[Rfam]
RNA: mir-375 microRNA precursor family
Organism: Petromyzon marinus
RNA sequence: CGUCACGCCGAGCCCGACGCGCAAUGCUGGCCGCCGCUGUGCGCGCUUUGUUCGUUCGGCUCGCGUUACGC
Numbered sequence: 001c002g003u004c005a006c007g008c009c010g011a012g013c014c015c016g017a018c019g020c021g022c023a024a025u026g027c028u029g030g031c032c033g034c035c036g037c038u039g040u041g042c043g044c045g046c047u048u049u050g051u052u053c054g055u056u057c058g059g060c061u062c063g064c065g066u067u068a069c070g071c
Base pairs, nucleotide, nucleotide: 001070002069003068005066006065007064009063010062011061012060013059014058018054019053021051022050023049024048026046027045